[Rfam]
The record is a 166-nucleotide RNA sequence from Oscillospiraceae bacterium Marseille-Q3528, which matches "Clostridiales-1 RNA" in Rfam. Lineage of the source: Bacteria > Bacillota > Clostridia > Eubacteriales > Oscillospiraceae. The family's consensus secondary structure is taken from published work. By type it is a small RNA. Rfam 15.1 lists 1,172 matches to the family in 137 species.
RNA sequence: AGCUCCCAAGGUCAUAAGCUACAGACCACGAUACGCUGGCGUAUCUGUGGGCGGAUAGCUUCAUGACCUGCCCCACUAUGAGCAUAAAAGAGAAGCGUUAGCUUCGCGAUAUGCGAAUGGGGGAGAAGCGUGGGAGUGCGCAGCACGGAGCGCUUCGUUGGGAACG
Numbered sequence: 001a002g003c004u005c006c007c008a009a010g011g012u013c014a015u016a017a018g019c020u021a022c023a024g025a026c027c028a029c030g031a032u033a034c035g036c037u038g039g040c041g042u043a044u045c046u047g048u049g050g051g052c053g054g055a056u057a058g059c060u061u062c063a064u065g066a067c068c069u070g071c072c073c074c075a076c077u078a079u080g081a082g083c084a085u086a087a088a089a090g091a092g093a094a095g096c097g098u099u100a101g102c103u104u105c106g107c108g109a110u111a112u113g114c115g116a117a118u119g120g121g122g123g124a125g126a127a128g129c130g131u132g133g134g135a136g137u138g139c140g141c142a143g144c145a146c147g148g149a150g151c152g153c154u155u156c157g158u159u160g161g162g163a164a165c166g
Base pairs, nucleotide, nucleotide: 002165004163005162006161007160010068011067012066013065016061017060018059019058020057021056022054024052026050027049028048029047030046031044032043033042034041035040072123073122074121076120077119078118079117082114083113084112085111090107092105093104094103095102096101125156126155127154128153129152130151131150136146137145138144139143